Rfam assigns this 102-nucleotide RNA from Shouchella oshimensis to the family "Purine riboswitch aptamer". The organism belongs to Shouchella oshimensis, within Bacteria. Gene Ontology term of the family: purine nucleobase biosynthetic process. A search with the family's covariance model found it, with a score of 83 bits.
[Rfam]
RNA sequence: AUGAAAACGAAUAUAUCACCUCAUAUAAUCUCAGGGAUAUGGCCUGAACGUUUCUACCUAACGACCGUAAAUUGUUAGACUAUGGGGAAAGACAAAAGCGCU
Numbered sequence: 001a002u003g004a005a006a007a008c009g010a011a012u013a014u015a016u017c018a019c020c021u022c023a024u025a026u027a028a029u030c031u032c033a034g035g036g037a038u039a040u041g042g043c044c045u046g047a048a049c050g051u052u053u054c055u056a057c058c059u060a061a062c063g064a065c066c067g068u069a070a071a072u073u074g075u076u077a078g079a080c081u082a083u084g085g086g087g088a089a090a091g092a093c094a095a096a097a098g099c100g101c102u
Base pairs, nucleotide, nucleotide: 019087020086021085022084023083024082025081031047032046033045034044035043058078059077060076061075062074063073064072